[Rfam]
Shown here is a 75-nucleotide RNA sequence from Haemonchus placei, a member of the family "mir-5928 microRNA precursor family". Taxonomically the source falls in Haemonchus (Eukaryota, Opisthokonta, Bilateria, Protostomia). Pairs were carried over by alignment from the consensus structure, which was predicted with RNAalifold.
RNA sequence: GGUCCAAAUUUGAAGUAGAGUAGGUUGGAAGGCUCAUCUGAUCCUACUAAACUACUCUACUUCAAGUUUGUGCCC
Numbered sequence: 001g002g003u004c005c006a007a008a009u010u011u012g013a014a015g016u017a018g019a020g021u022a023g024g025u026u027g028g029a030a031g032g033c034u035c036a037u038c039u040g041a042u043c044c045u046a047c048u049a050a051a052c053u054a055c056u057c058u059a060c061u062u063c064a065a066g067u068u069u070g071u072g073c074c075c
Base pairs, nucleotide, nucleotide: 001074002073003072005070006069007068008067009066011064012063013062014061015060016059017058018057019056020055021054022053023052025050026049027048028047030045032043034041035040